The record is a 369-nucleotide RNA sequence from Luteimonas sp., which matches "Bacterial RNase P class A" in Rfam. It scores 317 bits against the family's covariance model. NCBI's taxonomy places the organism under Bacteria, Pseudomonadota, Gammaproteobacteria, Lysobacteraceae, Luteimonas. Rfam's curators write: Ribonuclease P (RNase P) is a ubiquitous endoribonuclease, found in archaea, bacteria and eukarya as well as chloroplasts and mitochondria.

[Rfam]
RNA sequence: GGAGUCGGCCAGACAGUCGCGUCAUCCGCAGCCAUUUCGAUGGAUGCGGGUGCCGAGGAAAGUCCGGGCUCCACAGGGCACGGUGCCAGGUAACGCCUGGGCGGCGCGAGCCGACGGAAAGUGCAACAGAAAGAUACCGCCGAACGGCGUCGCAAGACGCGCGUGGCAAGGGUGAAAUGGUGCGGUAAGAGCGCACCGCGAGCCUGGCAACAGGCCGGCACGGCAAACCCCACCGGGAGCAAGACCAAAUAGGGACCCUAUGACGUGGCCCGCGUCGGGUCCGGGUAGGUUGCUCGAGCGUAACGGCGACGUUGCGCCUAGAGGAAUGACUGUCCAAGACAGAACCCGGCUUAUCGGCCGGCUCCGCCA
Numbered sequence: 001g002g003a004g005u006c007g008g009c010c011a012g013a014c015a016g017u018c019g020c021g022u023c024a025u026c027c028g029c030a031g032c033c034a035u036u037u038c039g040a041u042g043g044a045u046g047c048g049g050g051u052g053c054c055g056a057g058g059a060a061a062g063u064c065c066g067g068g069c070u071c072c073a074c075a076g077g078g079c080a081c082g083g084u085g086c087c088a089g090g091u092a093a094c095g096c097c098u099g100g101g102c103g104g105c106g107c108g109a110g111c112c113g114a115c116g117g118a119a120a121g122u123g124c125a126a127c128a129g130a131a132a133g134a135u136a137c138c139g140c141c142g143a144a145c146g147g148c149g150u151c152g153c154a155a156g157a158c159g160c161g162c163g164u165g166g167c168a169a170g171g172g173u174g175a176a177a178u179g180g181u182g183c184g185g186u187a188a189g190a191g192c193g194c195a196c197c198g199c200g201a202g203c204c205u206g207g208c209a210a211c212a213g214g215c216c217g218g219c220a221c222g223g224c225a226a227a228c229c230c231c232a233c234c235g236g237g238a239g240c241a242a243g244a245c246c247a248a249a250u251a252g253g254g255a256c257c258c259u260a261u262g263a264c265g266u267g268g269c270c271c272g273c274g275u276c277g278g279g280u281c282c283g284g285g286u287a288g289g290u291u292g293c294u295c296g297a298g299c300g301u302a303a304c305g306g307c308g309a310c311g312u313u314g315c316g317c318c319u320a321g322a323g324g325a326a327u328g329a330c331u332g333u334c335c336a337a338g339a340c341a342g343a344a345c346c347c348g349g350c351u352u353a354u355c356g357g358c359c360g361g362c363u364c365c366g367c368c369a
Base pairs, nucleotide, nucleotide: 001365002364003363004362005361006360007359008358009357010356011354012334013333014332015331016330017329018328020055021054023052024051025050026049027048028047029046030045060352061351062350064349065348066347067346068345069239070238071237072236076271077270078269079268081235082234083233084232085231086100087099088098089097090096101115102113103112104111105110116230117229121228122227123224124223137171138170139167140166141165145161146160179197180196181195182194183193184192198219199217200216202215203214204213205212206211243291244290245289246288253282254281255280256279257278258277262276263275264274265273266272298317299316300315301314302313303312304311305310